The family of this 51-nucleotide RNA sequence is "Glutamine riboswitch aptamer (glnA leader)".
The literature on the family includes a 2011 paper in RNA Biol by Ames and Breaker, "Bacterial aptamers that selectively bind glutamine".
It is one of the family's seed sequences.

[Rfam]
Nucleotides: 051
Stems, first nucleotide, its partner, number of pairs: 003047005009020004023048001029038003
Number, partner (000 for none) and nucleotide at each position: 001000a002000u003047c004046g005045u006044u007043c008000a009020u010019c011018c012017c013000c014000u015000a016000g017012g018011g019010g020009a021000c022000g023048g024000a025000a026000g027000u028000a029038a030037g031036c032000g033000a034000a035000a036031g037030c038029u039000g040000a041000a042000g043007g044006a045005a046004c047003g048023c049000g050000c051000a
The base pairs follow the family's consensus structure, which is taken from published work.